This 80-nucleotide sequence from Astyanax mexicanus belongs to the Rfam family "Small nucleolar RNA SNORD74".
Rfam classes the family as a C/D-box small nucleolar RNA.
For this family Rfam cites "Purified box C/D snoRNPs are able to reproduce site-specific 2'-O-methylation of target RNA in vitro" (Galardi et al., Mol Cell Biol, 2002).
Clan: SNORD74 clan.
The family's consensus secondary structure was predicted with PFOLD.
RNA sequence: CUAUGCAGAAAUGAUGAGAACUAUGUUGGUAGGGACAUCUGAGAAAAGCUUGCUGAGCAUCAACAUCCUGAUCUGCAUGG
Number, nucleotide and partner (000 for none) at each position: 001c080002u079003a078004u077005g076006c000007a000008g000009a000010a000011a000012u000013g000014a000015u000016g000017a000018g000019a000020a000021c000022u000023a000024u000025g000026u000027u000028g000029g000030u000031a000032g000033g000034g000035a000036c000037a000038u000039c000040u000041g000042a000043g000044a000045a000046a000047a000048g000049c000050u000051u000052g000053c000054u000055g000056a000057g000058c000059a000060u000061c000062a000063a000064c000065a000066u000067c000068c000069u000070g000071a000072u000073c000074u000075g000076c005077a004078u003079g002080g001